[Rfam]
RNA sequence: CGGAGACCAGGACCUGAAGCGGCAACGGGGGAACCACCACUCGUCCCGGACACCGGGACUAGGGGCCAAGUUCACUCACGAGUGACCGAGCAACUCCAGCUCGAGCCCGACAGCUCACCUCGUAGGUUUCGUGGAGGACACAC
Dot-bracket structure: ....((((.....(.......)..((((((....(..........................)(((......((((......))))..((((.......))))...))).........)))))).))))...............
c-di-AMP riboswitch aptamer (ydaO/yuaA leader): a 143-nucleotide RNA from Brevibacterium sp. CS2. The source organism's lineage runs through Bacteria, Bacillati, Actinomycetota, Micrococcales and Brevibacterium.